The record is an 82-nucleotide RNA from Mycolicibacterium smegmatis, which matches "Actinobacteria sRNA Ms_AS-4" in Rfam. Rfam's curators put it in the seed alignment. It is annotated as a small RNA. The literature on the family includes a 2013 paper in RNA by Li et al., "Identification of small RNAs in Mycobacterium smegmatis using heterologous Hfq".
RNA sequence: CUUGGCGUUGGUGUAUCGGUUCGGGUCGUCCCCGAACUCACCGAGCACCCGGGCGCCGAGGAUGACACCAAGUCCUGGCAGG
Numbered sequence: 001c002u003u004g005g006c007g008u009u010g011g012u013g014u015a016u017c018g019g020u021u022c023g024g025g026u027c028g029u030c031c032c033c034g035a036a037c038u039c040a041c042c043g044a045g046c047a048c049c050c051g052g053g054c055g056c057c058g059a060g061g062a063u064g065a066c067a068c069c070a071a072g073u074c075c076u077g078g079c080a081g082g
Base pairs, nucleotide, nucleotide: 008044009043010042011041012040013039018038019037020036021035022034023033024032025031055079056078057077059076060075061074062073063072